[Rfam]
RNA sequence: AUAGUCAUACAAGCGCCUGAACUCAUUAAAAUGAGUUGACGAGGAACAGGGAGAAUCGAAAAUUCGGCGGAUGCCCUGCGGUGACUUCACCACCGAGAAAGAGCCCACAAAACUGGCAAGUGAUUGGCAGUACAAAAGGCUUAAGUGAAAGA
Numbered sequence: 001a002u003a004g005u006c007a008u009a010c011a012a013g014c015g016c017c018u019g020a021a022c023u024c025a026u027u028a029a030a031a032u033g034a035g036u037u038g039a040c041g042a043g044g045a046a047c048a049g050g051g052a053g054a055a056u057c058g059a060a061a062a063u064u065c066g067g068c069g070g071a072u073g074c075c076c077u078g079c080g081g082u083g084a085c086u087u088c089a090c091c092a093c094c095g096a097g098a099a100a101g102a103g104c105c106c107a108c109a110a111a112a113c114u115g116g117c118a119a120g121u122g123a124u125u126g127g128c129a130g131u132a133c134a135a136a137a138g139g140c141u142u143a144a145g146u147g148a149a150a151g152a
Stems, first nucleotide, its partner, number of pairs: 020037007047078005056067004079095005101142005113130003117126003
This 152-nucleotide RNA sequence from Anoxynatronum buryatiense belongs to the Rfam family "glmS glucosamine-6-phosphate activated ribozyme aptamer".
Rfam classes the family as a riboswitch.